[Rfam]
Nucleotides: 119
Stems, first nucleotide, its partner, number of pairs: 003073002006071008015063003020058004026052004031047001034044001099117004104113003
Number, partner (000 for none) and nucleotide at each position: 001000a002000c003073g004072a005000g006071a007070u008069g009068c010067c011066c012065u013064u014000c015063g016062u017061g018000u019000c020058g021057c022056g023055g024000u025000c026052g027051a028050a029049u030000u031047g032000u033000u034044g035000c036000c037000u038000c039000a040000a041000g042000a043000a044034c045000u046000c047031c048000a049029a050028u051027u052026c053000u054000c055023c056022c057021g058020c059000c060000c061017c062016a063015c064013a065012a066011g067010g068009g069008c070007a071006u072004u073003c074000u075000c076000a077000c078000u079000u080000c081000a082000c083000g084000a085000c086000g087000c088000g089000c090000u091000c092000a093000a094000c095000c096000a097000a098000c099117c100116g101115a102114u103000c104113c105112c106111a107000u108000c109000g110000g111106u112105g113104g114102a115101u116100c117099g118000a119000g

Actinobacteria sRNA Ms_IGR-7: a 119-nucleotide RNA sequence from Flexivirga oryzae. Rfam 15.1 lists 463 matches to the family in 194 species. By type it is a small RNA. A reference for the family is Li et al. (2013), "Identification of small RNAs in Mycobacterium smegmatis using heterologous Hfq", RNA.